[Rfam]
RNA sequence: UGUGGUUGCUGAAUUAGAGAUCGGCAUCCCCUUUUUUUAUCUAUUAUUCUGGAGUUCAAAAUGUCUCUAAGCGUUGAAGCUAAAGCUAAAAUUGUUGCUGAGUUUGGUCGUGGUACU
Numbered sequence: 001u002g003u004g005g006u007u008g009c010u011g012a013a014u015u016a017g018a019g020a021u022c023g024g025c026a027u028c029c030c031c032u033u034u035u036u037u038u039a040u041c042u043a044u045u046a047u048u049c050u051g052g053a054g055u056u057c058a059a060a061a062u063g064u065c066u067c068u069a070a071g072c073g074u075u076g077a078a079g080c081u082a083a084a085g086c087u088a089a090a091a092u093u094g095u096u097g098c099u100g101a102g103u104u105u106g107g108u109c110g111u112g113g114u115a116c117u
Base pairs, nucleotide, nucleotide: 007026008025009024010023011022012021048071050069051068052067053066054065
Ribosomal S15 leader: a 117-nucleotide sequence from Citrobacter sp. JGM124. Rfam classes the family as a cis-regulatory leader. Lineage of the source: Bacteria > Pseudomonadota > Gammaproteobacteria > Enterobacteriaceae > Citrobacter. Rfam links the family to the GO term regulation of translation, ncRNA-mediated. On this family, see Benard et al., Biochimie 1996: "Pseudoknot and translational control in the expression of the S15 ribosomal protein". Pairs were carried over by alignment from the consensus structure, which is taken from published work.